[Rfam]
A member of the RNA family "Bacterial RNase P class B" from Halobacillus halophilus, 383 nucleotides long. Rfam describes the family as follows. Ribonuclease P (RNase P) is a ubiquitous endoribonuclease, found in archaea, bacteria and eukarya as well as chloroplasts and mitochondria. Its best characterised activity is the generation of mature 5'-ends of tRNAs by cleaving the 5'-leader elements of precursor-tRNAs. Cellular RNase Ps are ribonucleoproteins. RNA from bacterial RNase Ps retains its catalytic activity in the absence of the protein subunit, i.e. it is a ribozyme. Isolated eukaryotic and archaeal RNase P RNA has not been shown to retain its catalytic function, but is still essential for the catalytic activity of the holoenzyme. Although the archaeal and eukaryotic holoenzyme s have a much greater protein content than the bacterial ones, the RNA cores from all the three lineages are homologous -- helices corresponding to P1, P2, P3, P4, and P10/11 are common to all cellular RNase P RNAs. Yet, there is considerable sequence variation, particularly among the eukaryotic RNAs. It scores 333 bits against the family's covariance model. Clan: RNaseP clan. Its family is annotated with tRNA processing, ribonuclease P activity and dimeric ribonuclease P complex in the Gene Ontology.
RNA sequence: AUACUCGGGUAAUCGCUGUAUGAUUUUCAUACAGAGGAAAGUCCAUGCUCGCACAGUCUGAGAUGACUGUAGUGUUCGUGCCUGACGAAACCAUAAGUCAGGGUAGCUUAUGUAAAGCUAACGGCAAGGAAAAUUCCUAAGUCUGUUAAGAUAAGGAAUGAAUACUUUGAAAGUGCCACAGUGACGAAGCCAAAAUAGAAAUAUUUUGGGUGGAACGAGGUAAACCCCGCGAGUGAGCAACCCAAAUAUAGGUAGGGGCACUCUCUUAAUGGAAAAUGAACCAACGGAGAGGCCGGCAUAUAGUCGGCAGAUAGAUGAUUGCCACCGGAGUACGAGGUUGACCGCCGUUUGCAGUACAAUGGAACAGAACAUGGCUUACAGAG
Numbered sequence: 001a002u003a004c005u006c007g008g009g010u011a012a013u014c015g016c017u018g019u020a021u022g023a024u025u026u027u028c029a030u031a032c033a034g035a036g037g038a039a040a041g042u043c044c045a046u047g048c049u050c051g052c053a054c055a056g057u058c059u060g061a062g063a064u065g066a067c068u069g070u071a072g073u074g075u076u077c078g079u080g081c082c083u084g085a086c087g088a089a090a091c092c093a094u095a096a097g098u099c100a101g102g103g104u105a106g107c108u109u110a111u112g113u114a115a116a117g118c119u120a121a122c123g124g125c126a127a128g129g130a131a132a133a134u135u136c137c138u139a140a141g142u143c144u145g146u147u148a149a150g151a152u153a154a155g156g157a158a159u160g161a162a163u164a165c166u167u168u169g170a171a172a173g174u175g176c177c178a179c180a181g182u183g184a185c186g187a188a189g190c191c192a193a194a195a196u197a198g199a200a201a202u203a204u205u206u207u208g209g210g211u212g213g214a215a216c217g218a219g220g221u222a223a224a225c226c227c228c229g230c231g232a233g234u235g236a237g238c239a240a241c242c243c244a245a246a247u248a249u250a251g252g253u254a255g256g257g258g259c260a261c262u263c264u265c266u267u268a269a270u271g272g273a274a275a276a277u278g279a280a281c282c283a284a285c286g287g288a289g290a291g292g293c294c295g296g297c298a299u300a301u302a303g304u305c306g307g308c309a310g311a312u313a314g315a316u317g318a319u320u321g322c323c324a325c326c327g328g329a330g331u332a333c334g335a336g337g338u339u340g341a342c343c344g345c346c347g348u349u350u351g352c353a354g355u356a357c358a359a360u361g362g363a364a365c366a367g368a369a370c371a372u373g374g375c376u377u378a379c380a381g382a383g
Stems, first nucleotide, its partner, number of pairs: 004383003007379001008323007016034006039377003043374005048237005053070006076232005081102006103122001104120006123227002126167003134158004141152003173225002175221003190209008241257003261291006292308006325362003330357004